A member of the RNA family "Purine riboswitch aptamer" from Terrilactibacillus tamarindi, 102 nucleotides long. The base pairs follow the family's consensus structure, which is taken from published work. About the family: Riboswitches are metabolite binding domains within certain messenger RNAs that serve as precision sensors for their corresponding targets.
RNA sequence: CAUUUUAAUCUUCAACGCAUGUGUAUAAUCUUAGGAAUAGGGCCUAGGAGUUUCUACAAAAUCACCGUAAACGAUUUUACUACUUACUUUGCAAUACAUAUU
Numbered sequence: 001c002a003u004u005u006u007a008a009u010c011u012u013c014a015a016c017g018c019a020u021g022u023g024u025a026u027a028a029u030c031u032u033a034g035g036a037a038u039a040g041g042g043c044c045u046a047g048g049a050g051u052u053u054c055u056a057c058a059a060a061a062u063c064a065c066c067g068u069a070a071a072c073g074a075u076u077u078u079a080c081u082a083c084u085u086a087c088u089u090u091g092c093a094a095u096a097c098a099u100a101u102u
Stems, first nucleotide, its partner, number of pairs: 020086002023083003029049007058078006